RNA sequence: ACCGAGGAAAGGAGGUGGUCCACAUCAACGACAGUUCUCAUGGGACUUCGGAGGUGGCUGGCCGCUAGCGCGGCUUGCUGGAUCUCGUUGGCGAAUCCCCGCCAGACACCCGGCGGACCGGUGAUCGGGAGCUCGUCCCGCUCGAUGCAUUGCGCACCGGCCCGUUGAACACC
Number, nucleotide and partner (000 for none) at each position: 001a000002c000003c000004g000005a000006g000007g000008a000009a000010a000011g000012g000013a000014g062015g000016u060017g059018g058019u057020c000021c000022a000023c000024a000025u000026c000027a000028a000029c000030g000031a000032c000033a000034g000035u000036u000037c000038u000039c000040a000041u000042g000043g000044g000045a000046c000047u000048u000049c000050g000051g000052a000053g000054g000055u000056g000057g019058c018059u017060g016061g000062c014063c093064g092065c091066u090067a089068g088069c087070g086071c000072g000073g000074c000075u000076u000077g000078c000079u000080g000081g000082a000083u000084c000085u000086c070087g069088u068089u067090g066091g065092c064093g063094a000095a000096u000097c000098c000099c000100c000101g000102c000103c000104a000105g000106a000107c000108a000109c000110c000111c167112g166113g165114c164115g163116g162117a000118c160119c159120g158121g157122u156123g155124a000125u145126c144127g143128g142129g000130a000131g141132c140133u000134c000135g000136u000137c000138c000139c000140g132141c131142u128143c127144g126145a125146u000147g000148c000149a000150u000151u000152g000153c000154g000155c123156a122157c121158c120159g119160g118161c000162c116163c115164g114165u113166u112167g111168a000169a000170c000171a000172c000173c000
Shown here is a 173-nucleotide RNA sequence from Aquihabitans sp. G128, a member of the family "Actinobacteria sRNA Ms_IGR-5". The match comes from Rfam's covariance-model search (61 bits). Taxonomically the source falls in Aquihabitans (Bacteria, Bacillati, Acidimicrobiia, Acidimicrobiales).